[Rfam]
RNA sequence: GCUAUAAUGUGUGCAUAGUUUCCAUCUGUGUCUGGUAGUAGUAUCUGUCUGUGUUUUGCAUUCAGAUUGUGCUAUCCACACAAAUGUCACACAGCCAGAGAGUAACUUGGGAUCAUAGUACUGGUCUAGUGUUGUCCUUUUGGAUACAUCUACCACUGGCCAGCCUCCAAAUUCCCAAACAGAA
Numbered sequence: 001g002c003u004a005u006a007a008u009g010u011g012u013g014c015a016u017a018g019u020u021u022c023c024a025u026c027u028g029u030g031u032c033u034g035g036u037a038g039u040a041g042u043a044u045c046u047g048u049c050u051g052u053g054u055u056u057u058g059c060a061u062u063c064a065g066a067u068u069g070u071g072c073u074a075u076c077c078a079c080a081c082a083a084a085u086g087u088c089a090c091a092c093a094g095c096c097a098g099a100g101a102g103u104a105a106c107u108u109g110g111g112a113u114c115a116u117a118g119u120a121c122u123g124g125u126c127u128a129g130u131g132u133u134g135u136c137c138u139u140u141u142g143g144a145u146a147c148a149u150c151u152a153c154c155a156c157u158g159g160c161c162a163g164c165c166u167c168c169a170a171a172u173u174c175c176c177a178a179a180c181a182g183a184a
Base pairs, nucleotide, nucleotide: 013092016089029082030081031080033078034077035076036074037073038072039071040070043067044066045065046064047063050060051059052058108177109176110175111174112173121163122162123161124160125159126158128157129156130155131154133148134147135146137143
A member of the RNA family "Small nucleolar RNA SNORA23" from Fukomys damarensis, 184 nucleotides long. The family has 9 seed sequences and 1,092 matches in Rfam 15.1. Rfam classes the family as an H/ACA-box small nucleolar RNA. The base pairs follow the family's consensus structure, which was predicted with RNAalifold. The source organism's lineage runs through Eukaryota, Gnathostomata, Theria, Rodentia and Fukomys. Its family is annotated with RNA processing and nucleolus in the Gene Ontology. Rfam's curators write: The members of this family belong to the H/ACA class of snoRNAs which are thought to guide the sites of modification of uridines to pseudouridines. This family includes human snoRNA ACA23 (SNORA23) and mouse snoMBI-1. ACA23 is predicted to guide the pseudouridylation of residue U3737 and U4331 of 28S rRNA.